The record is a 203-nucleotide RNA sequence from Nocardia seriolae, which matches "Actinobacteria sRNA Ms_IGR-5" in Rfam. Rfam classes the family as a small RNA.

[Rfam]
RNA sequence: ACACAGGAAGGAGGUGGUUCGAGAAUGAUUUCUAGGACGCGUGAGGUGGCUGCCCGCUAGGCGCUACCGCUGCAAUCGGAUUCCGAUCGCGCGAGCCCUCGCGAAUCCAAGGCAGUCACCCGGCCCCCGAGUUACGGUCCGUCCGACCGGACUUGCGUGAGAAUGUUGCAUCCUCCGCAGGUAUGACUCGGGGGCCGUACCUG
Dot-bracket structure: ............((((((..............................))))))(((.(((.(((..(((..................)))..)))))).))).................(((((((((((((.((((.......))))...................................)))))))))))))......